[Rfam]
RNA sequence: UUCUUAUCGAGAGUGACGGAGGGAUCAGGCCCUAUGAAGUCCGGCAACCUUCAAGCAAUUGCUUGAAAAGGUGCUAAAUCCUGCAGGCAGUAAAUGUCUGGAAGAUAAGAU
Dot-bracket structure: .(((((((....(.(((...(((..[[[[)))......))))((((.((((((..........))))..))))))...(]]]]((((((.....))))))..)))))))).

SAM riboswitch aptamer (S box leader): a 111-nucleotide sequence from Cytobacillus kochii. The base pairs follow the family's consensus structure, which is taken from published work.